[Rfam]
RNA sequence: GGAUUUUUGAUUAACGCUUGUAAACCAACCGAUUCAAUGUCGCGGUGACAGACAUUGACUCUGUUCAGCCACAAGCCACUUGGAAG
Number, nucleotide and partner (000 for none) at each position: 001g000002g000003a000004u000005u000006u000007u000008u000009g000010a000011u000012u000013a000014a000015c000016g076017c075018u074019u073020g072021u071022a000023a000024a000025c000026c000027a000028a000029c000030c000031g000032a000033u000034u000035c000036a000037a000038u000039g000040u000041c000042g000043c000044g000045g000046u000047g000048a000049c000050a000051g000052a000053c000054a000055u000056u000057g000058a000059c000060u000061c000062u000063g000064u000065u000066c000067a000068g000069c000070c000071a021072c020073a019074a018075g017076c016077c000078a000079c000080u000081u000082g000083g000084a000085a000086g000
RNA: nuoG RNA